[Rfam]
This 343-nucleotide RNA sequence from Edwardsiella hoshinae belongs to the Rfam family "RNase E 5' UTR element". About the family: This family represents a conserved element found in the 5' UTR of RNase E mRNA. RNase E is a key regulatory enzyme in the pathway of mRNA degradation in E. coli that is able to auto-regulate the degradation of its own mRNA in response to changes in RNase E activity. This rne 5' UTR element acts as a sensor of cellular RNase E concentration enabling tight regulation of RNase E concentration and synthesis. Gene Ontology term of the family: regulation of gene expression. Pairs were carried over by alignment from the consensus structure, which is taken from published work. The literature on the family includes a 2000 paper in Genes Dev by Diwa et al., "An evolutionarily conserved RNA stem-loop functions as a sensor that directs feedback regulation of RNase E gene expression". The family's RNA type in Rfam is cis-regulatory element.
RNA sequence: UUUUCCGCGUUUUUUUCCGCCAAUGUGGGAAAAGAAGCAGGAUACGACGUUUACCUGAUAGCGCAAAAAUGCAGCAAUGGCGUAAGACGUAAUGCGAAAUCAAGUAAUUAGCGGGCUGCGGGUCGCAGUCUGACCAACAACAUGGAGUCAGUUUGCCGCAUCCUUUUUCUGCGGCGUCAUCCUGAUAAACAGCGCUGCCUUUCACAAAGAAAUGCAGGCUUACCGAAUAUUGCGCCCCUAUGCAGGCGACAACCGUGAGGUUGACGACUUUGCGAUAAGACUCGGGGUCAUCGGUCUUCCUCCCGGUCAGAAAAGGUCUUUUCGCCCGCAGCUUAAGUAGCCA
Numbered sequence: 001u002u003u004u005c006c007g008c009g010u011u012u013u014u015u016u017c018c019g020c021c022a023a024u025g026u027g028g029g030a031a032a033a034g035a036a037g038c039a040g041g042a043u044a045c046g047a048c049g050u051u052u053a054c055c056u057g058a059u060a061g062c063g064c065a066a067a068a069a070u071g072c073a074g075c076a077a078u079g080g081c082g083u084a085a086g087a088c089g090u091a092a093u094g095c096g097a098a099a100u101c102a103a104g105u106a107a108u109u110a111g112c113g114g115g116c117u118g119c120g121g122g123u124c125g126c127a128g129u130c131u132g133a134c135c136a137a138c139a140a141c142a143u144g145g146a147g148u149c150a151g152u153u154u155g156c157c158g159c160a161u162c163c164u165u166u167u168u169c170u171g172c173g174g175c176g177u178c179a180u181c182c183u184g185a186u187a188a189a190c191a192g193c194g195c196u197g198c199c200u201u202u203c204a205c206a207a208a209g210a211a212a213u214g215c216a217g218g219c220u221u222a223c224c225g226a227a228u229a230u231u232g233c234g235c236c237c238c239u240a241u242g243c244a245g246g247c248g249a250c251a252a253c254c255g256u257g258a259g260g261u262u263g264a265c266g267a268c269u270u271u272g273c274g275a276u277a278a279g280a281c282u283c284g285g286g287g288u289c290a291u292c293g294g295u296c297u298u299c300c301u302c303c304c305g306g307u308c309a310g311a312a313a314a315g316g317u318c319u320u321u322u323c324g325c326c327c328g329c330a331g332c333u334u335a336a337g338u339a340g341c342c343a
Stems, first nucleotide, its partner, number of pairs: 003042003007038002014032005051107004056102003062096004069090003074081002113334011131309005144182003155175005191220003195217004200212004222295005234288005247266002250263005